[Rfam]
Description:
Shown here is a 116-nucleotide RNA sequence from Micrococcus sp. HMSC067E09, a member of the family "Glycine riboswitch aptamer". Its family is annotated with glycine biosynthetic process in the Gene Ontology. It scores 58 bits against the family's covariance model.
RNA sequence: UCGCCCUGUGCGGGAGAGCGUCGGCGCGUCUGCGGAGACACCCCGGACGUCAGCCGGCCGCCGAAGGAGCAAGACCUCCCCGGGAAUCUCUCAGGCACCCGUACCGCGCAGGGGAA
Numbered sequence: 001u002c003g004c005c006c007u008g009u010g011c012g013g014g015a016g017a018g019c020g021u022c023g024g025c026g027c028g029u030c031u032g033c034g035g036a037g038a039c040a041c042c043c044c045g046g047a048c049g050u051c052a053g054c055c056g057g058c059c060g061c062c063g064a065a066g067g068a069g070c071a072a073g074a075c076c077u078c079c080c081c082g083g084g085a086a087u088c089u090c091u092c093a094g095g096c097a098c099c100c101g102u103a104c105c106g107c108g109c110a111g112g113g114g115a116a
Stems, first nucleotide, its partner, number of pairs: 006111008020058006060096003063092002067090003